[Rfam]
Rfam assigns this 47-nucleotide sequence from Desulfurispirillum indicum to the family "Guanidine-II riboswitch aptamer (mini-ykkC)". Lineage of the source: Bacteria > Pseudomonadati > Chrysiogenaceae > Desulfurispirillum > Desulfurispirillum indicum. It scores 46 bits against the family's covariance model. Rfam describes the family as follows. Simpler in structure and has fewer highly conserved nucleotide positions than the ykkC-yxkD leader. Despite this each of its two stem-loop structures directly bind free guanidine. Therefore, mini-ykkC RNA motif represents a distinct class of guanidine-sensing RNAs. Its crystal structure was also determined.
RNA sequence: AAGUGGGGACGACCUCACCGCUCCAAUACACUCCGGGGACGACCCCG
Numbered sequence: 001a002a003g004u005g006g007g008g009a010c011g012a013c014c015u016c017a018c019c020g021c022u023c024c025a026a027u028a029c030a031c032u033c034c035g036g037g038g039a040c041g042a043c044c045c046c047g
Stems, first nucleotide, its partner, number of pairs: 003018006034047005
Dot-bracket structure: ..((((((....))))))...............(((((....)))))